[Rfam]
RNA sequence: ACUCAGGCACGACCUACGCCGGGAGCGUAGGGACGACCUGAAGUCUCAAUCCUGAGGGA
Numbered sequence: 001a002c003u004c005a006g007g008c009a010c011g012a013c014c015u016a017c018g019c020c021g022g023g024a025g026c027g028u029a030g031g032g033a034c035g036a037c038c039u040g041a042a043g044u045c046u047c048a049a050u051c052c053u054g055a056g057g058g059a
Stems, first nucleotide, its partner, number of pairs: 001044003004040004013031007

Shown here is a 59-nucleotide RNA from Corynebacterium pyruviciproducens, a member of the family "L31-Corynebacteriaceae ribosomal protein leader".
On this family, see Eckert and Weinberg, BMC Microbiol 2020: "Discovery of 20 novel ribosomal leader candidates in bacteria and archaea".
The base pairs follow the family's consensus structure, which is taken from published work.
The family's RNA type in Rfam is cis-regulatory leader.
Taxonomically the source falls in Corynebacterium pyruviciproducens (Bacteria, Bacillati, Actinomycetes, Corynebacteriaceae).